[Rfam]
RNA sequence: GAACACCUCAAAGAAUCGCUAUCAAAGCAUUACAUACGGAGCAAUAAUUUCUUUUUAUUAGCUCAAAAAACCUAUUGCUUUGGGGAAAGUCCUCGGACGUAUGGCAGAAAGUGUCACCCAUAGUGUGGUAUUACCAUUCACUUGAACUUCCUUAUGUCGAGGAAAAAAGGGUUUUUUAAACCUUUGAGAUCUAUGGGAAGUGUCGUGAAUUGGUUUUGUUGGUCAUAGCACAGUUAUGCGAUUGUGAUCUUUUUCUUAUUAAGAAAAGUUCAUAACAGAACGGGGCUUACUCUUGGGGUGUU
Numbered sequence: 001g002a003a004c005a006c007c008u009c010a011a012a013g014a015a016u017c018g019c020u021a022u023c024a025a026a027g028c029a030u031u032a033c034a035u036a037c038g039g040a041g042c043a044a045u046a047a048u049u050u051c052u053u054u055u056u057a058u059u060a061g062c063u064c065a066a067a068a069a070a071c072c073u074a075u076u077g078c079u080u081u082g083g084g085g086a087a088a089g090u091c092c093u094c095g096g097a098c099g100u101a102u103g104g105c106a107g108a109a110a111g112u113g114u115c116a117c118c119c120a121u122a123g124u125g126u127g128g129u130a131u132u133a134c135c136a137u138u139c140a141c142u143u144g145a146a147c148u149u150c151c152u153u154a155u156g157u158c159g160a161g162g163a164a165a166a167a168a169g170g171g172u173u174u175u176u177u178a179a180a181c182c183u184u185u186g187a188g189a190u191c192u193a194u195g196g197g198a199a200g201u202g203u204c205g206u207g208a209a210u211u212g213g214u215u216u217u218g219u220u221g222g223u224c225a226u227a228g229c230a231c232a233g234u235u236a237u238g239c240g241a242u243u244g245u246g247a248u249c250u251u252u253u254u255c256u257u258a259u260u261a262a263g264a265a266a267a268g269u270u271c272a273u274a275a276c277a278g279a280a281c282g283g284g285g286c287u288u289a290c291u292c293u294u295g296g297g298g299u300g301u302u
Base pairs, nucleotide, nucleotide: 002302003301004300005299006298007297008296009295010294011293014243015242016241017240018239019238022083023082024081025080026079027078028077039064040063041062042061044059087288088287089286091285092284093283094282103115104114105113106112117127119125120124130214131213132212136210137209138208139207140206141205146201147200148199157193159191160190171181172180173179174178245272246271247270249268250267251266252265253264254263
Shown here is a 302-nucleotide RNA from Diversispora epigaea, a member of the family "RNase MRP". NCBI's taxonomy places the organism under Eukaryota, Opisthokonta, Glomeromycetes, Diversisporaceae, Diversispora. It scores 130 bits against the family's covariance model. Rfam describes the family as follows. RNase MRP is an enzymatically active ribonucleoprotein with two distinct roles in eukaryotes. In mitochondria it plays a direct role in the initiation of mitochondrial DNA replication. In the nucleus it is involved in precursor rRNA processing, where it cleaves the internal transcribed spacer 1 between 18S and 5.8S rRNAs. Despite distinct functions, RNase MRP has been shown to be evolutionarily related to RNase P. Like eukaryotic RNase P, RNase MRP is not catalytically active without associated protein subunits.